[Rfam]
RNA sequence: AUAAAGGGCACUCGCCAACUUAUGACGCAUAGGGGAAAAUUCUCCUGUGGGGUAUGGAAAUCCAGACAUACCCAGUGCGUAAUUUUUAGAACGGGAGGAAGUUGCGCUGGCCCUUGAGGCCGCGCGACGCCUCC
Numbered sequence: 001a002u003a004a005a006g007g008g009c010a011c012u013c014g015c016c017a018a019c020u021u022a023u024g025a026c027g028c029a030u031a032g033g034g035g036a037a038a039a040u041u042c043u044c045c046u047g048u049g050g051g052g053u054a055u056g057g058a059a060a061u062c063c064a065g066a067c068a069u070a071c072c073c074a075g076u077g078c079g080u081a082a083u084u085u086u087u088a089g090a091a092c093g094g095g096a097g098g099a100a101g102u103u104g105c106g107c108u109g110g111c112c113c114u115u116g117a118g119g120c121c122g123c124g125c126g127a128c129g130c131c132u133c134c
Base pairs, nucleotide, nucleotide: 008078009077010076011075012074013027014026016024017023028049029048030047031046032045033044034043035042036041050073051072052071053070054069055068056067096132097131098130101128102127103126104125105124109121110120111119112118
RNA: U11 spliceosomal RNA
Organism: Amphibalanus amphitrite